[Rfam]
RNA sequence: CUUUCCGAGGAGCGUUGCAGCGCCCCCAGCACGGCGGGGCGCGAGGCUCGGAAUCCUACUUCUGCAACGACGCUCGCCCACG
Numbered sequence: 001c002u003u004u005c006c007g008a009g010g011a012g013c014g015u016u017g018c019a020g021c022g023c024c025c026c027c028a029g030c031a032c033g034g035c036g037g038g039g040c041g042c043g044a045g046g047c048u049c050g051g052a053a054u055c056c057u058a059c060u061u062c063u064g065c066a067a068c069g070a071c072g073c074u075c076g077c078c079c080a081c082g
Base pairs, nucleotide, nucleotide: 003053004052005051006050007049008048021041022040023039024038025037026036
RNA: SAH (S-adenosyl-L-homocysteine) riboswitch aptamer
Organism: Paenacidovorax caeni